[Rfam]
RNA sequence: AAUACCGCAAGGUCUUGUGGGGAGGAAAACUUCGAGCUGACGAACAGAAACAUCGUAUAGGGCUUAGCUGUAGGCGAGGUAGGCAAGGACACUGAAGCCGGAAGAUCUAACGGGUAGAGUAAAUGAUGCACUUCAAAGCU
Numbered sequence: 001a002a003u004a005c006c007g008c009a010a011g012g013u014c015u016u017g018u019g020g021g022g023a024g025g026a027a028a029a030c031u032u033c034g035a036g037c038u039g040a041c042g043a044a045c046a047g048a049a050a051c052a053u054c055g056u057a058u059a060g061g062g063c064u065u066a067g068c069u070g071u072a073g074g075c076g077a078g079g080u081a082g083g084c085a086a087g088g089a090c091a092c093u094g095a096a097g098c099c100g101g102a103a104g105a106u107c108u109a110a111c112g113g114g115u116a117g118a119g120u121a122a123a124u125g126a127u128g129c130a131c132u133u134c135a136a137a138g139c140u
Stems, first nucleotide, its partner, number of pairs: 001016002004013003030138003034134003038130002051128006062120003065116002068113004073099003078093003
This 140-nucleotide RNA from Microbulbifer sp. THAF38 belongs to the Rfam family "Group II catalytic intron D1-D4-3". About the family: Group II introns are found in rRNA, tRNA and mRNA of organelles in fungi, plants and protists, and also in mRNA in bacteria. A search with the family's covariance model found it, with a score of 58 bits. The base pairs follow the family's consensus structure. Taxonomically the source falls in Microbulbifer (Bacteria, Pseudomonadati, Gammaproteobacteria, Cellvibrionales).